RNA sequence: UCCAUCGCGAGAUGGAGUCUGAAGGAAGCCGGAGGCAAAAUCCCGGGCUGACGAACAGAAACCGCAUACUGAGGCCGGUACAGGGCGGAUGAGUUUGCAUUACAAAACAAAGUCCAAUGCUACCCGAACCCUUGCUGGUAAAUGCGGCGGCUAUAUGGGAUGAAGGUUAUCGCU
Numbered sequence: 001u002c003c004a005u006c007g008c009g010a011g012a013u014g015g016a017g018u019c020u021g022a023a024g025g026a027a028g029c030c031g032g033a034g035g036c037a038a039a040a041u042c043c044c045g046g047g048c049u050g051a052c053g054a055a056c057a058g059a060a061a062c063c064g065c066a067u068a069c070u071g072a073g074g075c076c077g078g079u080a081c082a083g084g085g086c087g088g089a090u091g092a093g094u095u096u097g098c099a100u101u102a103c104a105a106a107a108c109a110a111a112g113u114c115c116a117a118u119g120c121u122a123c124c125c126g127a128a129c130c131c132u133u134g135c136u137g138g139u140a141a142a143u144g145c146g147g148c149g150g151c152u153a154u155a156u157g158g159g160a161u162g163a164a165g166g167u168u169a170u171c172g173c174u
Base pairs, nucleotide, nucleotide: 001016002015003014004013005012006011028174030172031171032170035167036166040161041160042159043158044157045156046152047151048150049149050148062147063146064145065144066143067142074139075138076137078135079134080133082132083131084130085129087115088114089113090112093108094107095106096105

A member of the RNA family "Group II catalytic intron D1-D4-3" from Acidaminobacter hydrogenoformans, 174 nucleotides long. Rfam's curators write: Group II introns are found in rRNA, tRNA and mRNA of organelles in fungi, plants and protists, and also in mRNA in bacteria.